[Rfam]
RNA sequence: CUCCCGGCAGCGGGAGAGAUCCUGACCUUGUGCCAGGACGCCGAAGGAGCAACCGCCCCGGAAACUCUCAGGCAAAACGGACCGCUGUUGUACU
Numbered sequence: 001c002u003c004c005c006g007g008c009a010g011c012g013g014g015a016g017a018g019a020u021c022c023u024g025a026c027c028u029u030g031u032g033c034c035a036g037g038a039c040g041c042c043g044a045a046g047g048a049g050c051a052a053c054c055g056c057c058c059c060g061g062a063a064a065c066u067c068u069c070a071g072g073c074a075a076a077a078c079g080g081a082c083c084g085c086u087g088u089u090g091u092a093c094u
Base pairs, nucleotide, nucleotide: 006089007088008087009086010085011084012083013082020038021037022036023035040073041072042071043069044068047067048066049065053061054060
Source information:
The family of this 94-nucleotide RNA from Pelagibacterium lentulum is "Glycine riboswitch aptamer". Its family is annotated with glycine biosynthetic process in the Gene Ontology.